[Rfam]
RNA sequence: GAGAUAUGAUUAGUGGUCUAGUCUCACAUUAAAUAUGCGAGUUGGGUGUCUGCCCCAGACUUGGUAACGACAAUUCAGCACUCUCCUUUGACCAAUCAGAUCUC
Numbered sequence: 001g002a003g004a005u006a007u008g009a010u011u012a013g014u015g016g017u018c019u020a021g022u023c024u025c026a027c028a029u030u031a032a033a034u035a036u037g038c039g040a041g042u043u044g045g046g047u048g049u050c051u052g053c054c055c056c057a058g059a060c061u062u063g064g065u066a067a068c069g070a071c072a073a074u075u076c077a078g079c080a081c082u083c084u085c086c087u088u089u090g091a092c093c094a095a096u097c098a099g100a101u102c103u104c
Base pairs, nucleotide, nucleotide: 001104002103003102004101014094015093016092017091018090023041024040025039027037044083045082046081047080048079049078063075064074065073

About this RNA:
Small nucleolar RNA Z279/snoR105/snoR108: a 104-nucleotide sequence from Lathyrus oleraceus. Its Rfam clan is "snoU13 clan". NCBI's taxonomy places the organism under Eukaryota, Euphyllophyta, Gunneridae, Hologalegina, Lathyrus. This family includes the plant snoRNAs known as Z279, snoR105 and snoR108. Gene Ontology terms of the family: nucleolus and RNA processing.